[Rfam]
Y RNA: a 101-nucleotide sequence from Cebus imitator. Pairs were carried over by alignment from the consensus structure, which is taken from published work. By type it is a non-coding RNA gene. The match comes from Rfam's covariance-model search (66 bits).

RNA sequence: AGUGGUCCAAAUGCAGUGGUGUUUACAACUAAUGGAUCACAUCCAGUUACAGAUUUCUUUGUUUCCUUUCCACUCCCACUGCUUCACUUGACUAGCUUAAG
Numbered sequence: 001a002g003u004g005g006u007c008c009a010a011a012u013g014c015a016g017u018g019g020u021g022u023u024u025a026c027a028a029c030u031a032a033u034g035g036a037u038c039a040c041a042u043c044c045a046g047u048u049a050c051a052g053a054u055u056u057c058u059u060u061g062u063u064u065c066c067u068u069u070c071c072a073c074u075c076c077c078a079c080u081g082c083u084u085c086a087c088u089u090g091a092c093u094a095g096c097u098u099a100a101g
Base pairs, nucleotide, nucleotide: 001097002096003094004093005092006091007090009089010088013085015080016079017078018077019076021075027063028062029061031059032058
Dot-bracket structure: (((((((.((..(.(((((.(.....(((.((.........................)).)))...........))))))....)..))))))).))....